[Rfam]
RNA sequence: UCCAUCGCGAGGUGGAAUCUGAAGGAAGCCGGCGGCAAAACUCUGGCCUGACGAACAGAAAUCACAUAAAAGGCAGAACCAGACUGGGUAAGAUUGCGACACAAAUCAAAGCCCAAAACUAUCCGAAAGUCUGUUCAGUCCCCCUGUUGCUGGCAGUACAGGCCGAUCAACCCUGGU
Numbered sequence: 001u002c003c004a005u006c007g008c009g010a011g012g013u014g015g016a017a018u019c020u021g022a023a024g025g026a027a028g029c030c031g032g033c034g035g036c037a038a039a040a041c042u043c044u045g046g047c048c049u050g051a052c053g054a055a056c057a058g059a060a061a062u063c064a065c066a067u068a069a070a071a072g073g074c075a076g077a078a079c080c081a082g083a084c085u086g087g088g089u090a091a092g093a094u095u096g097c098g099a100c101a102c103a104a105a106u107c108a109a110a111g112c113c114c115a116a117a118a119c120u121a122u123c124c125g126a127a128a129g130u131c132u133g134u135u136c137a138g139u140c141c142c143c144c145u146g147u148u149g150c151u152g153g154c155a156g157u158a159c160a161g162g163c164c165g166a167u168c169a170a171c172c173c174u175g176g177u
Stems, first nucleotide, its partner, number of pairs: 001016006028177005042162004046154003050150001062149001064147003073139002077135001080133005086114004092107004
Dot-bracket structure: ((((((....))))))...........(((((.........(((((((.(...........(.(((......((..(..(((((.((((..((((........))))...))))..............))))).)..)).....))).)).)))....))))..........)))))
Rfam assigns this 177-nucleotide RNA from Sporomusa termitida to the family "Group II catalytic intron D1-D4-3".